[Rfam]
Rfam assigns this 94-nucleotide RNA sequence from Enterobacterales bacterium CwR94 to the family "OmrA-B family". A reference for the family is Argaman et al. (2001), "Novel small RNA-encoding genes in the intergenic regions of Escherichia coli", Curr Biol. By type it is a small RNA. Rfam 15.1 lists 153 matches to the family in 128 species.
RNA sequence: CCCAGAGGUAUUGAUUGGUGAUGACUCUACAUAGCCUUUAUGUGAGUAAACCUGUUCAGUUGCACCAACCCACGCGGAUGCGUGGGUUUUUUUU
Numbered sequence: 001c002c003c004a005g006a007g008g009u010a011u012u013g014a015u016u017g018g019u020g021a022u023g024a025c026u027c028u029a030c031a032u033a034g035c036c037u038u039u040a041u042g043u044g045a046g047u048a049a050a051c052c053u054g055u056u057c058a059g060u061u062g063c064a065c066c067a068a069c070c071c072a073c074g075c076g077g078a079u080g081c082g083u084g085g086g087u088u089u090u091u092u093u094u
Stems, first nucleotide, its partner, number of pairs: 016067005021056001028044006068087008